[Rfam]
RNA sequence: ACUGGGAGCGUGGCGUCUCCUGUAACGUGGCUGCUCACGGGUCGGGUUACGGACUGAUUUGAGGUUGGGGUCCACUGUGUGCCGGGUAAGUCCAUGUUGACGGGACGUCCGCACUAAGCUGACCGUCAAUAUGGGUGCAAUGGGGGAGCCCGAUGCAUUCAGGUUGGCUAAAGAGAGAUGAACCGAGCGAGGGGUGAAAACCAGCAGCUAAAAGUCUCCGCGGUAAGCAGUAGUGGGAUCGCGUCCCGGAGUGGACUUCCGGUGCCAGCCUGACCAAUAUAGUCACACUGUAAUCUUUU
Numbered sequence: 001a002c003u004g005g006g007a008g009c010g011u012g013g014c015g016u017c018u019c020c021u022g023u024a025a026c027g028u029g030g031c032u033g034c035u036c037a038c039g040g041g042u043c044g045g046g047u048u049a050c051g052g053a054c055u056g057a058u059u060u061g062a063g064g065u066u067g068g069g070g071u072c073c074a075c076u077g078u079g080u081g082c083c084g085g086g087u088a089a090g091u092c093c094a095u096g097u098u099g100a101c102g103g104g105a106c107g108u109c110c111g112c113a114c115u116a117a118g119c120u121g122a123c124c125g126u127c128a129a130u131a132u133g134g135g136u137g138c139a140a141u142g143g144g145g146g147a148g149c150c151c152g153a154u155g156c157a158u159u160c161a162g163g164u165u166g167g168c169u170a171a172a173g174a175g176a177g178a179u180g181a182a183c184c185g186a187g188c189g190a191g192g193g194g195u196g197a198a199a200a201c202c203a204g205c206a207g208c209u210a211a212a213a214g215u216c217u218c219c220g221c222g223g224u225a226a227g228c229a230g231u232a233g234u235g236g237g238a239u240c241g242c243g244u245c246c247c248g249g250a251g252u253g254g255a256c257u258u259c260c261g262g263u264g265c266c267a268g269c270c271u272g273a274c275c276a277a278u279a280u281a282g283u284c285a286c287a288c289u290g291u292a293a294u295c296u297u298u299u
Stems, first nucleotide, its partner, number of pairs: 002041002004021005026039003044296009055285005063275007075268003079265005088258008097249001101248008109237002112235005118228003122224005127166004132161008141152004175218005186209003193202003